[Rfam]
RNA sequence: CUGCGAGGAUGAUCCCCGUGAACUCUCUCUUGCUGAUGAACCGGUGGAGAAGCUUCUGAACAGGCUCUGAGUGGC
Number, nucleotide and partner (000 for none) at each position: 001c074002u073003g072004c071005g000006a000007g000008g000009a000010u000011g000012a000013u000014c000015c000016c000017c000018g000019u000020g000021a000022a000023c000024u000025c000026u000027c000028u000029c000030u000031u000032g000033c000034u000035g000036a000037u000038g000039a000040a000041c000042c000043g000044g000045u000046g000047g000048a000049g000050a000051a000052g000053c000054u000055u000056c000057u000058g000059a000060a000061c000062a000063g000064g000065c000066u000067c000068u000069g000070a000071g004072u003073g002074g001075c000
RNA: Small nucleolar RNA SNORD26